The family of this 111-nucleotide RNA sequence from Formicincola oecophyllae is "TPP riboswitch aptamer (THI element)". A search with the family's covariance model found it, with a score of 79 bits.
RNA sequence: UCCUGUUCCGAGGGGCGUCCCACUGUAAUGUGGGGCUGAGAGGGCGACACGCCAAACCCUUUGAACCUGAUCCGGGUCAUGCCGGCGAAGGGAACGGAGUUAACGUGAUGC
Numbered sequence: 001u002c003c004u005g006u007u008c009c010g011a012g013g014g015g016c017g018u019c020c021c022a023c024u025g026u027a028a029u030g031u032g033g034g035g036c037u038g039a040g041a042g043g044g045c046g047a048c049a050c051g052c053c054a055a056a057c058c059c060u061u062u063g064a065a066c067c068u069g070a071u072c073c074g075g076g077u078c079a080u081g082c083c084g085g086c087g088a089a090g091g092g093a094a095c096g097g098a099g100u101u102a103a104c105g106u107g108a109u110g111c
Base pairs, nucleotide, nucleotide: 006099007098008097009096010095011060012059013058014057017036018035019034020033021032022031023030043053044052045051046050066091067090068089072085073084074083075082